RNA sequence: GACCUCCCUCUUUGGGGCAAUCAAUCGCGGGGCUCCGCGAUCGAUGGCCACGCAGAGGGAGGCC
Numbered sequence: 001g002a003c004c005u006c007c008c009u010c011u012u013u014g015g016g017g018c019a020a021u022c023a024a025u026c027g028c029g030g031g032g033c034u035c036c037g038c039g040a041u042c043g044a045u046g047g048c049c050a051c052g053c054a055g056a057g058g059g060a061g062g063c064c
Base pairs, nucleotide, nucleotide: 001064003062004061005060006059007058008057009056010055011054013052014051016049017048018047020045021044022043024041025040026039027038028037029036030035
mir-9242 microRNA precursor family: a 64-nucleotide RNA sequence from Myotis lucifugus.